[Rfam]
RNA: Clostridiales-1 RNA
RNA sequence: UGUCAUACAGGGAAUCAAGGAGAAAAAAUCAACGCAAGCUUGCUUGCAGGGGAUUUUUUCUCUUUGAUUCCCGCACAAACAUGAACAAGCAGCCAUUUUUCGUAAGAAAAAUGAGCGGAUUAUGAAUGUUUGUGGAGAAUCGCGGGAGCACGAAGUGCGGAGCGAUUCUGGUAUGACA
Numbered sequence: 001u002g003u004c005a006u007a008c009a010g011g012g013a014a015u016c017a018a019g020g021a022g023a024a025a026a027a028a029u030c031a032a033c034g035c036a037a038g039c040u041u042g043c044u045u046g047c048a049g050g051g052g053a054u055u056u057u058u059u060c061u062c063u064u065u066g067a068u069u070c071c072c073g074c075a076c077a078a079a080c081a082u083g084a085a086c087a088a089g090c091a092g093c094c095a096u097u098u099u100u101c102g103u104a105a106g107a108a109a110a111a112u113g114a115g116c117g118g119a120u121u122a123u124g125a126a127u128g129u130u131u132g133u134g135g136a137g138a139a140u141c142g143c144g145g146g147a148g149c150a151c152g153a154a155g156u157g158c159g160g161a162g163c164g165a166u167u168c169u170g171g172u173a174u175g176a177c178a
Stems, first nucleotide, its partner, number of pairs: 001178007011071004018064013033049001035046004075133008085123001087121002092116002094113008137168007148158004